[Rfam]
A member of the RNA family "Molybdenum/Tungsten riboswitch aptamer (Moco RNA motif)" from Aminomonas paucivorans, 121 nucleotides long.
Pairs were carried over by alignment from the consensus structure, which is taken from published work.
RNA sequence: CCCGCAACACGCCUCCGAGCCCGGACGCCUAAGGGGCAACGCCCUACGGUGCCGGGCCAACGGGUCCUCCCGGAAACGGAAGGACCUCCCGCGUUUGGAAAGGGGGCACCGGAAGCACCAC
Numbered sequence: 001c002c003c004g005c006a007a008c009a010c011g012c013c014u015c016c017g018a019g020c021c022c023g024g025a026c027g028c029c030u031a032a033g034g035g036g037c038a039a040c041g042c043c044c045u046a047c048g049g050u051g052c053c054g055g056g057c058c059a060a061c062g063g064g065u066c067c068u069c070c071c072g073g074a075a076a077c078g079g080a081a082g083g084a085c086c087u088c089c090c091g092c093g094u095u096u097g098g099a100a101a102g103g104g105g106g107c108a109c110c111g112g113a114a115g116c117a118c119c120a121c
Base pairs, nucleotide, nucleotide: 003115011107012106013105014104015103016102019057020056021055022054023053024052026051027050028049029048033045034044035043036042062087063086064085065084066083067082068081070079071078072077088098089097